Shown here is an 87-nucleotide sequence from Centaurea solstitialis, a member of the family "Small nucleolar RNA Z102/R77". The source organism's lineage runs through Eukaryota, Embryophyta, Pentapetalae, Carduoideae and Centaurea. The family's consensus secondary structure was predicted with PFOLD. For this family Rfam cites "The high diversity of snoRNAs in plants: identification and comparative study of 120 snoRNA genes from Oryza sativa" (Chen et al., Nucleic Acids Res, 2003). It is annotated as a C/D-box small nucleolar RNA. Gene Ontology terms of the family: nucleolus and RNA processing.
[Rfam]
RNA sequence: GGUUGAAAUGAUGAUGGAAUUUGUUUUCCCUAUUGGUUUGAUUUGCCGAUAUGAUGGCGAAAAUGUAUUAGCUCUAUCUGAUCAACA
Numbered sequence: 001g002g003u004u005g006a007a008a009u010g011a012u013g014a015u016g017g018a019a020u021u022u023g024u025u026u027u028c029c030c031u032a033u034u035g036g037u038u039u040g041a042u043u044u045g046c047c048g049a050u051a052u053g054a055u056g057g058c059g060a061a062a063a064u065g066u067a068u069u070a071g072c073u074c075u076a077u078c079u080g081a082u083c084a085a086c087a
Stems, first nucleotide, its partner, number of pairs: 002086004044059004

A search with the family's covariance model found it, with a score of 93 bits.